[Rfam]
The record is a 58-nucleotide sequence from Caenorhabditis nigoni, which matches "mir-7583 microRNA precursor family" in Rfam. Rfam 15.1 lists 38 matches to the family in 3 species. The source organism's lineage runs through Eukaryota, Opisthokonta, Nematoda, Peloderinae and Caenorhabditis.
RNA sequence: AGUUGCAAAAAUCGUGGUGGCAUUACAAACUGUCUUGCCAUCCGGCUUUUGUGGUUGA
Number, nucleotide and partner (000 for none) at each position: 001a056002g055003u054004u053005g052006c051007a050008a049009a048010a047011a000012u045013c044014g043015u000016g042017g041018u040019g039020g038021c037022a036023u000024u000025a033026c032027a000028a000029a000030c000031u000032g026033u025034c000035u000036u022037g021038c020039c019040a018041u017042c016043c014044g013045g012046c000047u010048u009049u008050u007051g006052u005053g004054g003055u002056u001057g000058a000

The match comes from Rfam's covariance-model search (78 bits).